A member of the RNA family "Metazoan signal recognition particle RNA" from Naegleria gruberi, 297 nucleotides long. The family's consensus secondary structure is taken from published work. The signal recognition particle (SRP) is a universally conserved ribonucleoprotein. It is involved in the co-translational targeting of proteins to membranes.
RNA sequence: CUGGGCUACUGUAGGGAGGUAGCUGUUAUGGUUCUCUGCCACAGCGUCAGGCAAAGGGAUGGUUCUUCAGACUCAUUCCUUUGUUAGCAAUAUGGUGACGAUGUUCUGUCUGACCAAUAGCGGUGUGACCAUAGUAUCUCCCCAUGAAUAAGGAGAAACUAGGGUCCUAAUGAAAGGUGAACCGGUUGAGGCAGGAUAACUGAGCAAAUCAUAGCCUUCACACUGUAGGAUGGUCAGAUUGCAGAACUGAGCAUGAGCUAUCAGAGAGUGAAAUCUGGGAGUCAGACUAAUGUUUUU
Numbered sequence: 001c002u003g004g005g006c007u008a009c010u011g012u013a014g015g016g017a018g019g020u021a022g023c024u025g026u027u028a029u030g031g032u033u034c035u036c037u038g039c040c041a042c043a044g045c046g047u048c049a050g051g052c053a054a055a056g057g058g059a060u061g062g063u064u065c066u067u068c069a070g071a072c073u074c075a076u077u078c079c080u081u082u083g084u085u086a087g088c089a090a091u092a093u094g095g096u097g098a099c100g101a102u103g104u105u106c107u108g109u110c111u112g113a114c115c116a117a118u119a120g121c122g123g124u125g126u127g128a129c130c131a132u133a134g135u136a137u138c139u140c141c142c143c144a145u146g147a148a149u150a151a152g153g154a155g156a157a158a159c160u161a162g163g164g165u166c167c168u169a170a171u172g173a174a175a176g177g178u179g180a181a182c183c184g185g186u187u188g189a190g191g192c193a194g195g196a197u198a199a200c201u202g203a204g205c206a207a208a209u210c211a212u213a214g215c216c217u218u219c220a221c222a223c224u225g226u227a228g229g230a231u232g233g234u235c236a237g238a239u240u241g242c243a244g245a246a247c248u249g250a251g252c253a254u255g256a257g258c259u260a261u262c263a264g265a266g267a268g269u270g271a272a273a274u275c276u277g278g279g280a281g282u283c284a285g286a287c288u289a290a291u292g293u294u295u296u297u
Stems, first nucleotide, its partner, number of pairs: 001044003004024006010017001029041003049295005055288002060284006067278004075274003079270001081268002085260004091255004096251001103247007110237007118228001120226007127166004132161004137156005144149001167172001174218005184210004192202003